[Rfam]
RNA sequence: CAGAAAUGGGGCAAAAUACGCGCCCGGUAAAAUGGAAUAUGGCCGACGUUUAAACGCGUCGGUUAUUUUUUUAC
Numbered sequence: 001c002a003g004a005a006a007u008g009g010g011g012c013a014a015a016a017u018a019c020g021c022g023c024c025c026g027g028u029a030a031a032a033u034g035g036a037a038u039a040u041g042g043c044c045g046a047c048g049u050u051u052a053a054a055c056g057c058g059u060c061g062g063u064u065a066u067u068u069u070u071u072u073a074c
Stems, first nucleotide, its partner, number of pairs: 011021002040065009